This 124-nucleotide RNA sequence from Paenibacillus sp. KS1 belongs to the Rfam family "Glycine riboswitch aptamer".
RNA sequence: CUCUGGAGAGCACUGCUAUUCAUGAAAACGAAUACAGUCACCCAAGGGGAAAGUCGAUGGUAGACACGGAAACAAACAAUUUGUUUGCGACAAUCGGCGACACUCUCAGGUACAAAGGACAGAG
Numbered sequence: 001c002u003c004u005g006g007a008g009a010g011c012a013c014u015g016c017u018a019u020u021c022a023u024g025a026a027a028a029c030g031a032a033u034a035c036a037g038u039c040a041c042c043c044a045a046g047g048g049g050a051a052a053g054u055c056g057a058u059g060g061u062a063g064a065c066a067c068g069g070a071a072a073c074a075a076a077c078a079a080u081u082u083g084u085u086u087g088c089g090a091c092a093a094u095c096g097g098c099g100a101c102a103c104u105c106u107c108a109g110g111u112a113c114a115a116a117g118g119a120c121a122g123a124g
Stems, first nucleotide, its partner, number of pairs: 001124005012038004040111003044106001047105003053098006